RNA sequence: UCAAUAUAUAAUUCAAAACAAGACGCAGUUUGGGUCGAAGAUUUACAGUCUCAAACUGCGUCUUGUUUUGAAUUAUAUAUUGAAUUCU
Numbered sequence: 001u002c003a004a005u006a007u008a009u010a011a012u013u014c015a016a017a018a019c020a021a022g023a024c025g026c027a028g029u030u031u032g033g034g035u036c037g038a039a040g041a042u043u044u045a046c047a048g049u050c051u052c053a054a055a056c057u058g059c060g061u062c063u064u065g066u067u068u069u070g071a072a073u074u075a076u077a078u079a080u081u082g083a084a085u086u087c088u
Stems, first nucleotide, its partner, number of pairs: 008076005014070006021063012